[Rfam]
RNA sequence: AGCACCCGGGGCGCCGCGUGGCGCGCCCGGGUAUCAGAACAGACACCGUGCCGGGGGAAGAAACCGGGCACAUCAGGGCGUU
Numbered sequence: 001a002g003c004a005c006c007c008g009g010g011g012c013g014c015c016g017c018g019u020g021g022c023g024c025g026c027c028c029g030g031g032u033a034u035c036a037g038a039a040c041a042g043a044c045a046c047c048g049u050g051c052c053g054g055g056g057g058a059a060g061a062a063a064c065c066g067g068g069c070a071c072a073u074c075a076g077g078g079c080g081u082u
Stems, first nucleotide, its partner, number of pairs: 004032007011024005048071005054065002
RNA: nrdJ RNA